This 80-nucleotide RNA from Lachnospiraceae bacterium XPB1003 belongs to the Rfam family "c-di-GMP-I riboswitch aptamer". Lineage of the source: Bacteria > Bacillati > Clostridia > Lachnospirales > Lachnospiraceae. Pairs were carried over by alignment from the consensus structure, which is taken from published work. Rfam links the family to the GO term cyclic-di-GMP binding.
RNA sequence: UAAUCUGUUCGGUACAACCGGGGCGACCCGGCGCCACAAAGCUAUAGGGACUCCGAUAUCGGAGUCAGCCAGUUGCAACC
Numbered sequence: 001u002a003a004u005c006u007g008u009u010c011g012g013u014a015c016a017a018c019c020g021g022g023g024c025g026a027c028c029c030g031g032c033g034c035c036a037c038a039a040a041g042c043u044a045u046a047g048g049g050a051c052u053c054c055g056a057u058a059u060c061g062g063a064g065u066c067a068g069c070c071a072g073u074u075g076c077a078a079c080c
Stems, first nucleotide, its partner, number of pairs: 012037002018031005040074004047070002049066007